[Rfam]
RNA sequence: ACACGAGAAAGGAGGUGGUCCAACAGUGAGUUCAUAUUGGACGCGUGAGGUGGUUGCGCGCUAGCGCGACCUCGCAGUUCGUCGGCGACCACCUCCGGUGGACCGACGUAGCGGACGUUCGGUAGCUACUCCAACGCAGCCACCGCGGCCCGUGGGCGCGCGACUCGUCCAUCGCGCACCCGGCCUCUCAGGCCGGAGCCCACGGGCUGUCCCCU
Numbered sequence: 001a002c003a004c005g006a007g008a009a010a011g012g013a014g015g016u017g018g019u020c021c022a023a024c025a026g027u028g029a030g031u032u033c034a035u036a037u038u039g040g041a042c043g044c045g046u047g048a049g050g051u052g053g054u055u056g057c058g059c060g061c062u063a064g065c066g067c068g069a070c071c072u073c074g075c076a077g078u079u080c081g082u083c084g085g086c087g088a089c090c091a092c093c094u095c096c097g098g099u100g101g102a103c104c105g106a107c108g109u110a111g112c113g114g115a116c117g118u119u120c121g122g123u124a125g126c127u128a129c130u131c132c133a134a135c136g137c138a139g140c141c142a143c144c145g146c147g148g149c150c151c152g153u154g155g156g157c158g159c160g161c162g163a164c165u166c167g168u169c170c171a172u173c174g175c176g177c178a179c180c181c182g183g184c185c186u187c188u189c190a191g192g193c194c195g196g197a198g199c200c201c202a203c204g205g206g207c208u209g210u211c212c213c214c215u
Base pairs, nucleotide, nucleotide: 015057016056017055018054019053060126061125062124063123065121068119069118070117072114073113074112146209147208148207149206150205151204152203153202154201155200156199157198159176160175161174162173163172

Rfam assigns this 215-nucleotide RNA from Rudaeicoccus suwonensis to the family "Actinobacteria sRNA Ms_IGR-5".